The record is a 136-nucleotide RNA sequence from Actinoalloteichus hoggarensis, which matches "FMN riboswitch aptamer (RFN element)" in Rfam. NCBI's taxonomy places the organism under Bacteria, Bacillati, Pseudonocardiales, Pseudonocardiaceae, Actinoalloteichus. A search with the family's covariance model found it, with a score of 87 bits.
RNA sequence: ACGUGCGCUCCGGGGUCGGUGGAAGUCCGAACCGGCGGUGACAGUCCGCGACCCGUCCGGCUGAUCUUCGGCCGCGACGGUUGACCCGGUGGAACUCCGGGACCGACGGUGAAAGUCCGGAUGGUAGGCGGCGCAC
Number, nucleotide and partner (000 for none) at each position: 001a000002c000003g134004u133005g132006c131007g000008c000009u128010c127011c000012g000013g000014g000015g000016u000017c029018g028019g027020u000021g000022g000023a000024a000025g000026u000027c019028c018029g017030a000031a116032c115033c105034g104035g049036c048037g047038g046039u000040g000041a000042c000043a000044g103045u102046c038047c037048g036049c035050g000051a000052c000053c080054c079055g078056u077057c076058c000059g000060g000061c000062u000063g000064a000065u000066c000067u000068u000069c000070g000071g000072c000073c000074g000075c000076g057077a056078c055079g054080g053081u000082u000083g000084a000085c101086c100087c099088g098089g097090u000091g000092g000093a000094a000095c000096u000097c089098c088099g087100g086101g085102a045103c044104c034105g033106a000107c119108g118109g117110u000111g000112a000113a000114a000115g032116u031117c109118c108119g107120g000121a000122u000123g000124g000125u000126a000127g010128g009129c000130g000131g006132c005133g004134c003135a000136c000